[Rfam]
This 97-nucleotide RNA from Luteimonas aestuarii belongs to the Rfam family "Bacterial small signal recognition particle RNA". The family is grouped with related families in Rfam's "SRP clan". The family's consensus secondary structure is taken from published work. A search with the family's covariance model found it, with a score of 65 bits. It is annotated as a non-coding RNA gene.
RNA sequence: CCGUCGGCCCCUCGCGACGCUAGGUCGAAAACUCCGCCAGGGCCGGAAGGCAGCAACGGUAUCGAUCGACGCGGGUGCCGAGGUCAGUCGGCGGGGC
Numbered sequence: 001c002c003g004u005c006g007g008c009c010c011c012u013c014g015c016g017a018c019g020c021u022a023g024g025u026c027g028a029a030a031a032c033u034c035c036g037c038c039a040g041g042g043c044c045g046g047a048a049g050g051c052a053g054c055a056a057c058g059g060u061a062u063c064g065a066u067c068g069a070c071g072c073g074g075g076u077g078c079c080g081a082g083g084u085c086a087g088u089c090g091g092c093g094g095g096g097c
Base pairs, nucleotide, nucleotide: 004091005090006089007088008087010083011082012081013080014079015075018073019072020071023067024066025065026064027063028062034059035058036057042051043050044049